A member of the RNA family "mir-H11 microRNA precursor family" from Simplexvirus macropodidalpha1, 69 nucleotides long.
Rfam 15.1 lists 60 matches to the family in 10 species.
RNA sequence: CAACGCCAGCGUUCGCACUUUGUGCUAAUAAUAUAUAUUAUUAGCACAAAGUGCGAACGCUGGGCGUUC
Numbered sequence: 001c002a003a004c005g006c007c008a009g010c011g012u013u014c015g016c017a018c019u020u021u022g023u024g025c026u027a028a029u030a031a032u033a034u035a036u037a038u039u040a041u042u043a044g045c046a047c048a049a050a051g052u053g054c055g056a057a058c059g060c061u062g063g064g065c066g067u068u069c
Base pairs, nucleotide, nucleotide: 002068003067004066005065006064007062008061009060010059011058012057013056014055015054016053017052018051019050020049021048022047023046024045025044026043027042028041029040030039
The family's consensus secondary structure was predicted with RNAalifold.